[Rfam]
RNA: c-di-AMP riboswitch aptamer (ydaO/yuaA leader)
RNA sequence: GCGGUCGACCCGCCGAAUCCGUGCGGAAUGGAGCACGGAGCCGGGGACCCGAGCACCUGGGGUGAGUCCGGCCUGCGGGCCGGUAGGGCGACUUCCACGCCCGAACCCGUCAGCUAACCCGGUAGGCAUUCGUGGAAGAUUCA
Numbered sequence: 001g002c003g004g005u006c007g008a009c010c011c012g013c014c015g016a017a018u019c020c021g022u023g024c025g026g027a028a029u030g031g032a033g034c035a036c037g038g039a040g041c042c043g044g045g046g047a048c049c050c051g052a053g054c055a056c057c058u059g060g061g062g063u064g065a066g067u068c069c070g071g072c073c074u075g076c077g078g079g080c081c082g083g084u085a086g087g088g089c090g091a092c093u094u095c096c097a098c099g100c101c102c103g104a105a106c107c108c109g110u111c112a113g114c115u116a117a118c119c120c121g122g123u124a125g126g127c128a129u130u131c132g133u134g135g136a137a138g139a140u141u142c143a
Stems, first nucleotide, its partner, number of pairs: 012127003018039007040123006050059002060108003068083004086102004